[Rfam]
RNA sequence: GCCGAGCCUUGUAGCGUGGGCUUGUGACCCAAGUGGGGGCAUCAAAGUGAUUGAACGUUGGGCCAAAUCAUUCAGCUGGGCUUCGGGUAGCUUGUCUGGCCCGCCCGUUCCAAGCGGCGGAGUUGGGCCAAGUGGUCUGUCCGAAGGGAUGGGCCACUUGCUUCCUAAAGUGGAGGGCACCGUGUCAGGCUGGUUUCACAGAGCAGCAUUAAACUUCCCGCUCUCUGCAGUGGAAGGAUUACGGGCCGGUGCUGUUCGGGCCCAUUCAAGUUGAUUUGGUUGGCCCAAUUGAACAAUUGCUUUU
Numbered sequence: 001g002c003c004g005a006g007c008c009u010u011g012u013a014g015c016g017u018g019g020g021c022u023u024g025u026g027a028c029c030c031a032a033g034u035g036g037g038g039g040c041a042u043c044a045a046a047g048u049g050a051u052u053g054a055a056c057g058u059u060g061g062g063c064c065a066a067a068u069c070a071u072u073c074a075g076c077u078g079g080g081c082u083u084c085g086g087g088u089a090g091c092u093u094g095u096c097u098g099g100c101c102c103g104c105c106c107g108u109u110c111c112a113a114g115c116g117g118c119g120g121a122g123u124u125g126g127g128c129c130a131a132g133u134g135g136u137c138u139g140u141c142c143g144a145a146g147g148g149a150u151g152g153g154c155c156a157c158u159u160g161c162u163u164c165c166u167a168a169a170g171u172g173g174a175g176g177g178c179a180c181c182g183u184g185u186c187a188g189g190c191u192g193g194u195u196u197c198a199c200a201g202a203g204c205a206g207c208a209u210u211a212a213a214c215u216u217c218c219c220g221c222u223c224u225c226u227g228c229a230g231u232g233g234a235a236g237g238a239u240u241a242c243g244g245g246c247c248g249g250u251g252c253u254g255u256u257c258g259g260g261c262c263c264a265u266u267c268a269a270g271u272u273g274a275u276u277u278g279g280u281u282g283g284c285c286c287a288a289u290u291g292a293a294c295a296a297u298u299g300c301u302u303u304u
Base pairs, nucleotide, nucleotide: 001040002039003038004023005022006021007020008019009018028037029036030035044303045302046301047300048299049298050297051296052295053294056291057290058288059287060286061285062284063283064282065281066280068278070276072274073273074272075271076270077269078263079262080261081260082259083258085256086255088254089253090252092251096249097248098247099246100245101244102243103242105237106236108235109234110233111232112231114228115227116226117225119224120223121222122221123220125164126163127162129160130159131158132157133156134155135154136153137152138151139150140149141148142147165170172218173217174216175215176214182209183208184207185206190201191200192199